A member of the RNA family "abiF RNA", 36 nucleotides long. Rfam describes the family as follows. Actinobacteria, Bacteroidetes, Clostridia, Proteobacteria, one Clostridia phage.
RNA sequence: CCCGCCACGCCUCUCAACGAUGCGCAACAGGCGGGU
Numbered sequence: 001c002c003c004g005c006c007a008c009g010c011c012u013c014u015c016a017a018c019g020a021u022g023c024g025c026a027a028c029a030g031g032c033g034g035g036u
Stems, first nucleotide, its partner, number of pairs: 001035006008024003
Dot-bracket structure: ((((((.(((...........))).....)))))).

The base pairs follow the family's consensus structure, which is taken from published work.